[Rfam]
RNA sequence: GGUAAUCUCAAUGUUGUUGCUUAUAUAAUCGCCAUGAUAUGGAUGGCAAGUUCCUACCCAAAACCGUAAAUUUUGGACUAUAAGUAAAGCGAUUUAGGAG
Numbered sequence: 001g002g003u004a005a006u007c008u009c010a011a012u013g014u015u016g017u018u019g020c021u022u023a024u025a026u027a028a029u030c031g032c033c034a035u036g037a038u039a040u041g042g043a044u045g046g047c048a049a050g051u052u053c054c055u056a057c058c059c060a061a062a063a064c065c066g067u068a069a070a071u072u073u074u075g076g077a078c079u080a081u082a083a084g085u086a087a088a089g090c091g092a093u094u095u096a097g098g099a100g
Base pairs, nucleotide, nucleotide: 018086019085020084021083022082023081024080025079029049031047032046033045034044035043058076059075060074061073062072063071